[Rfam]
RNA: Stem loopII regulatory element in POLB
Organism: Chrysochloris asiatica
RNA sequence: AGUGCAACAGGAGUCUUAAUUUAUUUCCUAACCUUUGCUAUGUAAGGGUCUCUGGUGGUUUUAGAGCACUGGGUUUUUUUCAUGCU
Dot-bracket structure: ........((((...((((.....((....((((((((...))))))))....)).....))))...........)))).......
Numbered sequence: 001a002g003u004g005c006a007a008c009a010g011g012a013g014u015c016u017u018a019a020u021u022u023a024u025u026u027c028c029u030a031a032c033c034u035u036u037g038c039u040a041u042g043u044a045a046g047g048g049u050c051u052c053u054g055g056u057g058g059u060u061u062u063a064g065a066g067c068a069c070u071g072g073g074u075u076u077u078u079u080u081c082a083u084g085c086u
Stems, first nucleotide, its partner, number of pairs: 009079004016064004025055002031049008